mir-156 microRNA precursor family: an 84-nucleotide RNA sequence from Rhynchospora breviuscula.
Rfam describes the family as follows. This family represents the plant microRNA (miRNA) precursor mir-156.
It scores 63 bits against the family's covariance model.
For this family Rfam cites "MicroRNAs in plants" (Reinhart et al., Genes Dev, 2002).
Pairs were carried over by alignment from the consensus structure, which was predicted with PFOLD.
RNA sequence: UUGACAGAAGAGAGUGAGCACUCAGCGGCGAUCAACACCACGGUCUGUGCUGUUUCUGUUGUGUGCUCACUCUCUUUCUGUCAU
Numbered sequence: 001u002u003g004a005c006a007g008a009a010g011a012g013a014g015u016g017a018g019c020a021c022u023c024a025g026c027g028g029c030g031a032u033c034a035a036c037a038c039c040a041c042g043g044u045c046u047g048u049g050c051u052g053u054u055u056c057u058g059u060u061g062u063g064u065g066c067u068c069a070c071u072c073u074c075u076u077u078c079u080g081u082c083a084u
Stems, first nucleotide, its partner, number of pairs: 002083008010074012023061003
Dot-bracket structure: .((((((((((((((((((((.(((.................................))).)))))))))))).)))))))).

The organism belongs to Rhynchospora, within Eukaryota.
Rfam 15.1 lists 1,401 matches to the family in 221 species.